[Rfam]
RNA sequence: CCAUGAACUUUGUACCGCGCACAUCACUUAGAUGGGUCCUGGAAAGUCGCGUAGAAG
Number, nucleotide and partner (000 for none) at each position: 001c000002c000003a000004u000005g000006a000007a000008c000009u000010u000011u000012g000013u000014a000015c000016c000017g000018c000019g037020c036021a000022c034023a033024u032025c031026a000027c000028u000029u000030a000031g025032a024033u023034g022035g000036g020037u019038c000039c000040u000041g000042g000043a000044a000045a000046g000047u000048c000049g000050c000051g000052u000053a000054g000055a000056a000057g000
Rfam assigns this 57-nucleotide sequence to the family "Plastid-ndhJ 3UTR RNA". By type it is a cis-regulatory element. Rfam's curators put it in the seed alignment. Rfam's curators write: Plastid ndhJ is a non-coding RNA (ncRNA) present in plastids.